[Rfam]
RNA: Glycine riboswitch aptamer
RNA sequence: GCGAGCAACUCUGGAGAGACCGGUCCAACCCGGCGCCGAAGGUGCAAGCAGCGUCUCCACCCUCCCCCGGGUGCUGCAAACUCUCAGGCAAAAGGACAGAGGGGCGCCU
Numbered sequence: 001g002c003g004a005g006c007a008a009c010u011c012u013g014g015a016g017a018g019a020c021c022g023g024u025c026c027a028a029c030c031c032g033g034c035g036c037c038g039a040a041g042g043u044g045c046a047a048g049c050a051g052c053g054u055c056u057c058c059a060c061c062c063u064c065c066c067c068c069g070g071g072u073g074c075u076g077c078a079a080a081c082u083c084u085c086a087g088g089c090a091a092a093a094g095g096a097c098a099g100a101g102g103g104g105c106g107c108c109u
Stems, first nucleotide, its partner, number of pairs: 006104001009101005020033004035089003038085002042083001044081001048077009